[Rfam]
RNA sequence: AAAAAGACAAAUCCUGCUUUCCGUGUCCAACGUUUGACCAUCCGUCUUAUUUAAAAAAUUAUAAAAAAAUAAAAAAAAUAAGUCACGUAUAAAGUAUUAAUCAUGUUUUAUCAUUUAACAAUAAUGAAAAUAGUAAUUAUAAAAAAAUUUCAUAUAAAAUGGACAGUCAAACGUUGGCACGAAAACCCAGGGUUUGUCUUUUU
Numbered sequence: 001a002a003a004a005a006g007a008c009a010a011a012u013c014c015u016g017c018u019u020u021c022c023g024u025g026u027c028c029a030a031c032g033u034u035u036g037a038c039c040a041u042c043c044g045u046c047u048u049a050u051u052u053a054a055a056a057a058a059u060u061a062u063a064a065a066a067a068a069a070u071a072a073a074a075a076a077a078a079u080a081a082g083u084c085a086c087g088u089a090u091a092a093a094g095u096a097u098u099a100a101u102c103a104u105g106u107u108u109u110a111u112c113a114u115u116u117a118a119c120a121a122u123a124a125u126g127a128a129a130a131u132a133g134u135a136a137u138u139a140u141a142a143a144a145a146a147a148u149u150u151c152a153u154a155u156a157a158a159a160u161g162g163a164c165a166g167u168c169a170a171a172c173g174u175u176g177g178c179a180c181g182a183a184a185a186c187c188c189a190g191g192g193u194u195u196g197u198c199u200u201u202u203u
Stems, first nucleotide, its partner, number of pairs: 027177005033171006041163005047157004

The record is a 203-nucleotide RNA from Oryza barthii, which matches "MIR812 microRNA precursor family" in Rfam. Pairs were carried over by alignment from the consensus structure, which was predicted with RNAalifold. Lineage of the source: Eukaryota > Streptophyta > Streptophytina > Tracheophyta > Oryza. The match comes from Rfam's covariance-model search (106 bits). Rfam links the family to the GO terms RISC complex and miRNA-mediated post-transcriptional gene silencing.